Rfam assigns this 117-nucleotide RNA sequence from Muriicola soli to the family "Bacteroidete tryptophan peptide leader RNA". It is annotated as a cis-regulatory leader. It scores 71 bits against the family's covariance model. Gene Ontology terms of the family: S-adenosylmethionine metabolic process and regulation of gene expression. The base pairs follow the family's consensus structure, which is taken from published work.
RNA sequence: UCCUUUCUAUAUUUGACCUCAUGAAAAAAAUUACAGUAAAUACUUGGUGGUGGAGUAACUUACGUCUGAUGUCGUGAGCGAAGCACAUUUAAGUACUACUGUACGAAAAGGCUUGUC
Numbered sequence: 001u002c003c004u005u006u007c008u009a010u011a012u013u014u015g016a017c018c019u020c021a022u023g024a025a026a027a028a029a030a031u032u033a034c035a036g037u038a039a040a041u042a043c044u045u046g047g048u049g050g051u052g053g054a055g056u057a058a059c060u061u062a063c064g065u066c067u068g069a070u071g072u073c074g075u076g077a078g079c080g081a082a083g084c085a086c087a088u089u090u091a092a093g094u095a096c097u098a099c100u101g102u103a104c105g106a107a108a109a110g111g112c113u114u115g116u117c
Stems, first nucleotide, its partner, number of pairs: 036099003041095007050086003059080001061078001062072003